[Rfam]
RNA: Manganese Mn2+ riboswitch aptamer (yybP-ykoY)
RNA sequence: ACAUAUGUCAAAGGGGAGUAGCUAUAGGGAAACCUAUUUCAUAGUCGUCAUUACAUGGCUUUUGCCAUCGGUUAUGAUAGUAAUUUUACAAUUACUU
Dot-bracket structure: ........................(((......)))..(((((((((.......(((((....)))))))))))))).(((((((....))))))).